The record is an 81-nucleotide sequence from Noviherbaspirillum denitrificans, which matches "SAH (S-adenosyl-L-homocysteine) riboswitch aptamer" in Rfam. The family's consensus secondary structure is taken from published work. The organism belongs to Noviherbaspirillum, within Bacteria.

RNA sequence: GGCUCCAAGGAGCGUUGCAGCACGGUUCCCCCAUGAUCGUGUCAGGCUUGGAUUUCUUUUUCGCAACGGCGCUCACGUUAC
Number, nucleotide and partner (000 for none) at each position: 001g000002g054003c000004u052005c051006c050007a049008a048009g000010g000011a000012g000013c000014g000015u000016u000017g000018c000019a000020g000021c041022a040023c039024g038025g037026u036027u000028c000029c000030c000031c000032c000033a000034u000035g000036a026037u025038c024039g023040u022041g021042u000043c000044a000045g000046g000047c000048u008049u007050g006051g005052a004053u000054u002055u000056c000057u000058u000059u000060u000061u000062c000063g000064c000065a000066a000067c000068g000069g000070c000071g000072c000073u000074c000075a000076c000077g000078u000079u000080a000081c000